[Rfam]
RNA sequence: AUCACAAAUUUGAGGCUAUAACAGAAGUGUUCACAGCAUGGCCUGUCAUAGUCUAAUGAAUUUGCGAAUUCUGCC
Numbered sequence: 001a002u003c004a005c006a007a008a009u010u011u012g013a014g015g016c017u018a019u020a021a022c023a024g025a026a027g028u029g030u031u032c033a034c035a036g037c038a039u040g041g042c043c044u045g046u047c048a049u050a051g052u053c054u055a056a057u058g059a060a061u062u063u064g065c066g067a068a069u070u071c072u073g074c075c
Stems, first nucleotide, its partner, number of pairs: 014043004022073005027039003047064002050061001052059002

Mammalian CPEB3 ribozyme: a 75-nucleotide RNA sequence from Alligator mississippiensis. The family's consensus secondary structure is taken from published work. The match comes from Rfam's covariance-model search (44 bits). NCBI's taxonomy places the organism under Eukaryota, Eumetazoa, Dipnotetrapodomorpha, Archosauria, Alligator.